[Rfam]
RNA: RAGATH-18 RNA
RNA sequence: CCCUUGGAGUGUUAUAUCAAACGAAAGUAGCUUUAUAGCAAAAUCGGACAUAUUGAAGAGGGAA
Numbered sequence: 001c002c003c004u005u006g007g008a009g010u011g012u013u014a015u016a017u018c019a020a021a022c023g024a025a026a027g028u029a030g031c032u033u034u035a036u037a038g039c040a041a042a043a044u045c046g047g048a049c050a051u052a053u054u055g056a057a058g059a060g061g062g063a064a
Stems, first nucleotide, its partner, number of pairs: 001062005009051005022046003030039003